[Rfam]
RNA sequence: AAAAGGAGCAAUAACGCCUUCUUGAUAGAACAAGAAAGAGGUUAUUGCUCCCCUUUUA
Numbered sequence: 001a002a003a004a005g006g007a008g009c010a011a012u013a014a015c016g017c018c019u020u021c022u023u024g025a026u027a028g029a030a031c032a033a034g035a036a037a038g039a040g041g042u043u044a045u046u047g048c049u050c051c052c053c054u055u056u057u058a
Base pairs, nucleotide, nucleotide: 002054005051006050007049008048009047010046011045012044013043014042015041019036020035021034022033023032024031
The family of this 58-nucleotide RNA sequence from Carpodetus serratus is "Plastid-psbA-3 3UTR RNA". A reference for the family is Richter et al. (2023), "Retrograde signaling in plants: A critical review focusing on the GUN pathway and beyond", Plant Commun. The source organism's lineage runs through Eukaryota, Euphyllophyta, Mesangiospermae, asterids and Carpodetus. The family's consensus secondary structure was predicted with LocARNA. Clan: Plastid-psbA 3UTR RNA clan. Rfam's curators put it in the seed alignment.